[Rfam]
RNA: mir-203 microRNA precursor family
Organism: Ictalurus punctatus
RNA sequence: AGUGGUUCUUAACAGUUCAACAGUUCUAUCUCAAAAUUGUGAAAUGUUUAGGACCACU
Numbered sequence: 001a002g003u004g005g006u007u008c009u010u011a012a013c014a015g016u017u018c019a020a021c022a023g024u025u026c027u028a029u030c031u032c033a034a035a036a037u038u039g040u041g042a043a044a045u046g047u048u049u050a051g052g053a054c055c056a057c058u
Stems, first nucleotide, its partner, number of pairs: 001058006008051002011048004016043004